Bacterial RNase P class A: a 514-nucleotide RNA sequence from Spirosoma endophyticum. Clan: RNaseP clan. Taxonomically the source falls in Spirosoma (Bacteria, Cytophagia, Cytophagales, Cytophagaceae). The match comes from Rfam's covariance-model search (261 bits). About the family: Ribonuclease P (RNase P) is a ubiquitous endoribonuclease, found in archaea, bacteria and eukarya as well as chloroplasts and mitochondria.

[Rfam]
RNA sequence: GAUACGAAUCGGCUUAUCGCGUCUAAGUAAUUGGGCGAGGAAAGUCCGGGCAGCGCAGGGCACCCUACUUCCUAACGGGAAGGCGGACGGUUGGGAACGACCGUUCGACAGCCAGUGUCACAGAAAAUAUACCGCCAUCUUUUCAAUGAGCGAAUGACAAAAUGAGUGAAAGAGCGAAUAGCUGACGCAAGCCCUAUUCACUCAUUGUCUCUUUCACUCAUUCGCUCAUUGAAAAGGUGGUAAGGGUGAAAAGGUGGGGUAAGAGCCUACCGCCCGACGGGCGACCGGCGGGGCAGGAUAAACCUUAGGGGCUGAAAGACCAAAUAAGCGUCGGAUGUGGGGCGGCUCGUUUCCGUUCCAGAGCAAUCCCAACCGGGAACGAUCUGGAUGCCGACGCGGGUAGGUCGAACGAGGUGGUCGGUGACGACCAUCCCAGAUAAAUGAUAGGCUAUUUGAUACGUGCUGAAAGGCAUGAAUUGAAAGACAGAACCCGGCUUAUAGAUUCGUAUCGUGA
Numbered sequence: 001g002a003u004a005c006g007a008a009u010c011g012g013c014u015u016a017u018c019g020c021g022u023c024u025a026a027g028u029a030a031u032u033g034g035g036c037g038a039g040g041a042a043a044g045u046c047c048g049g050g051c052a053g054c055g056c057a058g059g060g061c062a063c064c065c066u067a068c069u070u071c072c073u074a075a076c077g078g079g080a081a082g083g084c085g086g087a088c089g090g091u092u093g094g095g096a097a098c099g100a101c102c103g104u105u106c107g108a109c110a111g112c113c114a115g116u117g118u119c120a121c122a123g124a125a126a127a128u129a130u131a132c133c134g135c136c137a138u139c140u141u142u143u144c145a146a147u148g149a150g151c152g153a154a155u156g157a158c159a160a161a162a163u164g165a166g167u168g169a170a171a172g173a174g175c176g177a178a179u180a181g182c183u184g185a186c187g188c189a190a191g192c193c194c195u196a197u198u199c200a201c202u203c204a205u206u207g208u209c210u211c212u213u214u215c216a217c218u219c220a221u222u223c224g225c226u227c228a229u230u231g232a233a234a235a236g237g238u239g240g241u242a243a244g245g246g247u248g249a250a251a252a253g254g255u256g257g258g259g260u261a262a263g264a265g266c267c268u269a270c271c272g273c274c275c276g277a278c279g280g281g282c283g284a285c286c287g288g289c290g291g292g293g294c295a296g297g298a299u300a301a302a303c304c305u306u307a308g309g310g311g312c313u314g315a316a317a318g319a320c321c322a323a324a325u326a327a328g329c330g331u332c333g334g335a336u337g338u339g340g341g342g343c344g345g346c347u348c349g350u351u352u353c354c355g356u357u358c359c360a361g362a363g364c365a366a367u368c369c370c371a372a373c374c375g376g377g378a379a380c381g382a383u384c385u386g387g388a389u390g391c392c393g394a395c396g397c398g399g400g401u402a403g404g405u406c407g408a409a410c411g412a413g414g415u416g417g418u419c420g421g422u423g424a425c426g427a428c429c430a431u432c433c434c435a436g437a438u439a440a441a442u443g444a445u446a447g448g449c450u451a452u453u454u455g456a457u458a459c460g461u462g463c464u465g466a467a468a469g470g471c472a473u474g475a476a477u478u479g480a481a482a483g484a485c486a487g488a489a490c491c492c493g494g495c496u497u498a499u500a501g502a503u504u505c506g507u508a509u510c511g512u513g514a
Base pairs, nucleotide, nucleotide: 001510002509003508004507005506006505007504008503009502010501011499012449013448014447015446016445017444018443020037021036022035023034024033025032026031042497043496044495046494047493048492049491050490051314052313053312054311063310064309065308066307067306068082069081070080071079072078083109084107085106086105087104088103089102090101091100092099093098110305111304115303116302117299118298119297132245133244134241135240136239137238138237139236140235141234142233143232144231145230146229147228148227149226150225151224152223153222154221155220156219157218253271254270255269256268257267258266272294273292274291275290276289278287279286280285318406319405320404321403328397329396330395331394332393333392413432414431415430416429417428418427419426420425